Background
Rfam assigns this 159-nucleotide RNA from Aureimonas endophytica to the family "6S / SsrS RNA". The family's consensus secondary structure is taken from published work. By type it is a non-coding RNA gene. The literature on the family includes a 2000 paper in Cell by Wassarman and Storz, "6S RNA regulates E. coli RNA polymerase activity". The source organism's lineage runs through Bacteria, Pseudomonadati, Hyphomicrobiales, Aurantimonadaceae and Aureimonas.

RNA sequence: GGCGGGCUGCGCGGUGCGACAGGGAUAACUUAUUCCCCGGGGCCUUACGCAUCCCUUAGGGAGCUGUUCCUGUCCUGGUCCGUGGGCCGGGACACACGGCGCCCACCUACUCUGUAGGUUCCCGGGAUCGACAUUCUCAUCGGCCGAGGUGGCUCGCCA
Numbered sequence: 001g002g003c004g005g006g007c008u009g010c011g012c013g014g015u016g017c018g019a020c021a022g023g024g025a026u027a028a029c030u031u032a033u034u035c036c037c038c039g040g041g042g043c044c045u046u047a048c049g050c051a052u053c054c055c056u057u058a059g060g061g062a063g064c065u066g067u068u069c070c071u072g073u074c075c076u077g078g079u080c081c082g083u084g085g086g087c088c089g090g091g092a093c094a095c096a097c098g099g100c101g102c103c104c105a106c107c108u109a110c111u112c113u114g115u116a117g118g119u120u121c122c123c124g125g126g127a128u129c130g131a132c133a134u135u136c137u138c139a140u141c142g143g144c145c146g147a148g149g150u151g152g153c154u155c156g157c158c159a
Stems, first nucleotide, its partner, number of pairs: 002157009012146004017142003034127004039122006059104003063100005072093007
Dot-bracket structure: .(((((((((.((((.(((..............((((.((((((..............(((.(((((....(((((((........)))))))..))))).)))............)))))).))))............)))))))..)))))))))..